The record is a 46-nucleotide sequence from Rhynochetos jubatus, which matches "Histone 3' UTR stem-loop" in Rfam.
[Rfam]
RNA sequence: CCAAAGGCUCUUUUAAGAGCCACCACAUGGCCCCGAAAGAGCUGUA
Numbered sequence: 001c002c003a004a005a006g007g008c009u010c011u012u013u014u015a016a017g018a019g020c021c022a023c024c025a026c027a028u029g030g031c032c033c034c035g036a037a038a039g040a041g042c043u044g045u046a
Stems, first nucleotide, its partner, number of pairs: 006021006

Notes
The mRNAs of metazoan histone genes lack a poly-A tail. 3' end processing occurs at a site between a highly conserved stem-loop (modelled by this family) and a purine rich region around 20 nts downstream (the histone downstream element, or HDE). Pairs were carried over by alignment from the consensus structure, which is taken from published work. The organism belongs to Rhynochetos, within Eukaryota.